[Rfam]
RNA sequence: AGCAUAUGCUUGUCUCAAAGAUUAAGCCAUGCAUGUCUAAGUACAUGCCGUAUUAAGGCGAAACCGCGAAUGGCUCAUUAAAUCAGUUAUGGUUCCUUGGAUCGUACCUUACUACUUGGAUAACUGUGGCAAUUCUAGAGCUAAUACAUGCAGCCGAGCUCCGACCCUCCGGGGGACGAGCGCUUUUAUUAGAUUGUGACCGGCCCCUCCUCUCGGGGUGGGGAUCGGAAACGUGAACCGAAGCUGAGUAACUUUGGCAGAUCGCACGGGCCCGUCCCGGCGACGCAUCUUUCAAGUGUCUGCCCUAUCAACUGUCGACGGUAGGUCAUGCGCCUACCGUGGUCGCCACGGGUGACGGGGAAUCAGGGUUCGAUUCCGGAGAGGGAGCCUGAGAGACGGCUACCACAUCUAAGGAAGGCAGCAGGCACGCAAAUUACCCACUCCCGGCUCGGGGAGGUAGUGACGAAAAAUAACGAUACGGGACUCAUCGAGACCCCGUGAUCGGAAUGAGUACGCUCUAAACCCCCUAACGAGGACCUACCGGAGGGCAAGACUAAUGCCAGCCGCUGCGGUAAUUUUAGCUCCGGUAGCGUAUACUAA
Numbered sequence: 001a002g003c004a005u006a007u008g009c010u011u012g013u014c015u016c017a018a019a020g021a022u023u024a025a026g027c028c029a030u031g032c033a034u035g036u037c038u039a040a041g042u043a044c045a046u047g048c049c050g051u052a053u054u055a056a057g058g059c060g061a062a063a064c065c066g067c068g069a070a071u072g073g074c075u076c077a078u079u080a081a082a083u084c085a086g087u088u089a090u091g092g093u094u095c096c097u098u099g100g101a102u103c104g105u106a107c108c109u110u111a112c113u114a115c116u117u118g119g120a121u122a123a124c125u126g127u128g129g130c131a132a133u134u135c136u137a138g139a140g141c142u143a144a145u146a147c148a149u150g151c152a153g154c155c156g157a158g159c160u161c162c163g164a165c166c167c168u169c170c171g172g173g174g175g176a177c178g179a180g181c182g183c184u185u186u187u188a189u190u191a192g193a194u195u196g197u198g199a200c201c202g203g204c205c206c207c208u209c210c211u212c213u214c215g216g217g218g219u220g221g222g223g224a225u226c227g228g229a230a231a232c233g234u235g236a237a238c239c240g241a242a243g244c245u246g247a248g249u250a251a252c253u254u255u256g257g258c259a260g261a262u263c264g265c266a267c268g269g270g271c272c273c274g275u276c277c278c279g280g281c282g283a284c285g286c287a288u289c290u291u292u293c294a295a296g297u298g299u300c301u302g303c304c305c306u307a308u309c310a311a312c313u314g315u316c317g318a319c320g321g322u323a324g325g326u327c328a329u330g331c332g333c334c335u336a337c338c339g340u341g342g343u344c345g346c347c348a349c350g351g352g353u354g355a356c357g358g359g360g361a362a363u364c365a366g367g368g369u370u371c372g373a374u375u376c377c378g379g380a381g382a383g384g385g386a387g388c389c390u391g392a393g394a395g396a397c398g399g400c401u402a403c404c405a406c407a408u409c410u411a412a413g414g415a416a417g418g419c420a421g422c423a424g425g426c427a428c429g430c431a432a433a434u435u436a437c438c439c440a441c442u443c444c445c446g447g448c449u450c451g452g453g454g455a456g457g458u459a460g461u462g463a464c465g466a467a468a469a470a471u472a473a474c475g476a477u478a479c480g481g482g483a484c485u486c487a488u489c490g491a492g493a494c495c496c497c498g499u500g501a502u503c504g505g506a507a508u509g510a511g512u513a514c515g516c517u518c519u520a521a522a523c524c525c526c527c528u529a530a531c532g533a534g535g536a537c538c539u540a541c542c543g544g545a546g547g548g549c550a551a552g553a554c555u556a557a558u559g560c561c562a563g564c565c566g567c568u569g570c571g572g573u574a575a576u577u578u579u580a581g582c583u584c585c586g587g588u589a590g591c592g593u594a595u596a597c598u599a600a
Base pairs, nucleotide, nucleotide: 001598002597004595005594006593007592008591009590010589013468015466016465019461020428026426027425028424030423031422032421035067036066041064042063047059048058074381075380076379084302085301086300089297090296093295094294099290100289101288102287115150117148118147124140125139127137128136129135158181159180160179161178165174166173186251187250188249189248190247262283263282264281265280267279268278269277270276304352305351306350311343312342313341318340319339320338321337322336323335324334325333356378357377358376359375360371361370362369363368383404384403386401387400388399406417408415409414434459436458437457438456442454443453444452445451446450474504475503476502477500478499479498480497481496482495484492485491486490511531512530513528515527541587542586543585544584545583546582554581555580556579557578563570564569
RNA: Eukaryotic small subunit ribosomal RNA, nucleotides 22 to 621